Shown here is a 70-nucleotide RNA sequence from Fukomys damarensis, a member of the family "Small nucleolar RNA SNORD102". NCBI's taxonomy places the organism under Eukaryota, Euteleostomi, Tetrapoda, Theria, Fukomys. The base pairs follow the family's consensus structure, which was predicted with PFOLD. A reference for the family is Vitali et al. (2003), "Identification of 13 novel human modification guide RNAs", Nucleic Acids Res. The family's RNA type in Rfam is C/D-box small nucleolar RNA.
[Rfam]
RNA sequence: AGCUUAAUGAUGACUGUCUUUGUGAUUGAAAAAGCAAUGUGAAAAACACAUUUCACCGGCUCUGAAAGCU
Numbered sequence: 001a002g003c004u005u006a007a008u009g010a011u012g013a014c015u016g017u018c019u020u021u022g023u024g025a026u027u028g029a030a031a032a033a034g035c036a037a038u039g040u041g042a043a044a045a046a047c048a049c050a051u052u053u054c055a056c057c058g059g060c061u062c063u064g065a066a067a068g069c070u
Base pairs, nucleotide, nucleotide: 001070002069003068004067005066